[Rfam]
The record is an 82-nucleotide RNA from Thermanaerothrix daxensis, which matches "c-di-GMP-I riboswitch aptamer" in Rfam. It scores 60 bits against the family's covariance model. The family's consensus secondary structure is taken from published work.

RNA sequence: CGCCCGAAACGGCAAACCCAUCGCGAGAUGGGGGCGCAAAGUCAUGGACCUGCGGGCGCCCGCAGGCCGCCAGACUGCCGAA
Numbered sequence: 001c002g003c004c005c006g007a008a009a010c011g012g013c014a015a016a017c018c019c020a021u022c023g024c025g026a027g028a029u030g031g032g033g034g035c036g037c038a039a040a041g042u043c044a045u046g047g048a049c050c051u052g053c054g055g056g057c058g059c060c061c062g063c064a065g066g067c068c069g070c071c072a073g074a075c076u077g078c079c080g081a082a
Stems, first nucleotide, its partner, number of pairs: 012037002017032006040076004045072003049066002052063003
Dot-bracket structure: ...........((...((((((....))))))...))..((((.(((.((.(((......))).))...)))))))......